The record is a 45-nucleotide sequence from Latilactobacillus sakei, which matches "PreQ1 (pre queuosine) riboswitch aptamer" in Rfam. Rfam describes the family as follows. This family is a bacterial riboswitch that binds to the metabolite preQ1, an intermediate in the biosynthesis of the modified nucleoside queuosine from GTP. One example of this riboswitch is located in the leader of the Bacillus subtilis ykvJKLM (queCDEF) operon which encodes four genes necessary for queuosine production. PreQ1 binding to the riboswitch aptamer is thought to induce premature transcription termination within the leader to down-regulate expression of these genes. Lineage of the source: Bacteria > Bacillati > Bacillota > Latilactobacillus > Latilactobacillus sakei subsp. sakei. Its family is annotated with queuosine biosynthetic process in the Gene Ontology. For this family Rfam cites "Identification of four genes necessary for biosynthesis of the modified nucleoside queuosine" (Reader et al., J Biol Chem, 2004).
[Rfam]
RNA sequence: AAAAACGUGGUUCGUAACCAUCCCACGCUAAAAAACUAGGAGGAU
Numbered sequence: 001a002a003a004a005a006c007g008u009g010g011u012u013c014g015u016a017a018c019c020a021u022c023c024c025a026c027g028c029u030a031a032a033a034a035a036c037u038a039g040g041a042g043g044a045u
Base pairs, nucleotide, nucleotide: 006027007026008025009024010023015038016037
Dot-bracket structure: .....(((((....[[......))))).........]].......